[Rfam]
RNA: Metazoan signal recognition particle RNA
RNA sequence: GUGAAGCACAGUGGCACGAGCCUGUAAUCCAGCUACUCCAGAGGCUGAGGCUGGCGGAUCACUUGAGCUCAGGAUUUCUGGGCUGCAGCAGGCUAGGCUGAUUGGGUGUCCGUACUAAGUUCAGCAUCAAUAUGGUGAUCCCAGGGGAGCCAAGGGCCACCAGGUUGCCUAAGAAGGGGUGAAUCAGCCUAGGUCGGAGAUGGAGCAGGUCAAAACUGCCGAUCUGUAGUGGGAUAGCGCCUGUGAAUAGCGGUUGCAGCGUAGCUUGAGCAAAACAGCGAAACCCAGACUCUU
Numbered sequence: 001g002u003g004a005a006g007c008a009c010a011g012u013g014g015c016a017c018g019a020g021c022c023u024g025u026a027a028u029c030c031a032g033c034u035a036c037u038c039c040a041g042a043g044g045c046u047g048a049g050g051c052u053g054g055c056g057g058a059u060c061a062c063u064u065g066a067g068c069u070c071a072g073g074a075u076u077u078c079u080g081g082g083c084u085g086c087a088g089c090a091g092g093c094u095a096g097g098c099u100g101a102u103u104g105g106g107u108g109u110c111c112g113u114a115c116u117a118a119g120u121u122c123a124g125c126a127u128c129a130a131u132a133u134g135g136u137g138a139u140c141c142c143a144g145g146g147g148a149g150c151c152a153a154g155g156g157c158c159a160c161c162a163g164g165u166u167g168c169c170u171a172a173g174a175a176g177g178g179g180u181g182a183a184u185c186a187g188c189c190u191a192g193g194u195c196g197g198a199g200a201u202g203g204a205g206c207a208g209g210u211c212a213a214a215a216c217u218g219c220c221g222a223u224c225u226g227u228a229g230u231g232g233g234a235u236a237g238c239g240c241c242u243g244u245g246a247a248u249a250g251c252g253g254u255u256g257c258a259g260c261g262u263a264g265c266u267u268g269a270g271c272a273a274a275a276c277a278g279c280g281a282a283a284c285c286c287a288g289a290c291u292c293u294u
Base pairs, nucleotide, nucleotide: 001045002044004023006021007020009018028042029041047292048291049290051288052287053286054285059281060280062278063277067271068270069269070268071267072266073265078264079263080262082260083259084258085257086256087255088254089253092251093250094249095248098245103243104242105241106240107239108238109237110233111232113231114230115229116228117227118225119224121222122221128167129166130165131164133162134161135160136159137158139156140155141154144151145150169173176219178217179216180215187210188209189208194203195202196201